RNA: TPP riboswitch aptamer (THI element)
RNA sequence: UGCCACACACACGGGAGUCCGGGACCGCCGGGCUGAGAGGGAGCGAACGGCGCUCCGACCGUCGAACCUGAUCCGGGUCAUGCCGGCGCAGGGAGGAGUCAGCAACCAUGCC
Numbered sequence: 001u002g003c004c005a006c007a008c009a010c011a012c013g014g015g016a017g018u019c020c021g022g023g024a025c026c027g028c029c030g031g032g033c034u035g036a037g038a039g040g041g042a043g044c045g046a047a048c049g050g051c052g053c054u055c056c057g058a059c060c061g062u063c064g065a066a067c068c069u070g071a072u073c074c075g076g077g078u079c080a081u082g083c084c085g086g087c088g089c090a091g092g093g094a095g096g097a098g099u100c101a102g103c104a105a106c107c108a109u110g111c112c
Stems, first nucleotide, its partner, number of pairs: 007099002010096001011062004017033005040056005067092004073086004